[Rfam]
This 57-nucleotide RNA sequence from Prunus yedoensis belongs to the Rfam family "Plastid-ndhJ 3UTR RNA".
RNA sequence: UCAUGAACUAUGUACUACGCACAUCACUUAGAUGGGCUAUAGAAAGUAAGUCAUAAA
Number, nucleotide and partner (000 for none) at each position: 001u000002c000003a000004u000005g000006a000007a000008c000009u000010a000011u000012g000013u000014a000015c000016u000017a000018c000019g037020c036021a000022c034023a033024u032025c031026a000027c000028u000029u000030a000031g025032a024033u023034g022035g000036g020037c019038u000039a000040u000041a000042g000043a000044a000045a000046g000047u000048a000049a000050g000051u000052c000053a000054u000055a000056a000057a000
Plastid ndhJ is a non-coding RNA (ncRNA) present in plastids. It was identified as a short stem-loop motif in the 3 prime untranslate region (3UTR) of ndhJ gene. The source organism's lineage runs through Eukaryota, Embryophyta, eudicotyledons, Prunus and Prunus yedoensis. The match comes from Rfam's covariance-model search (63 bits).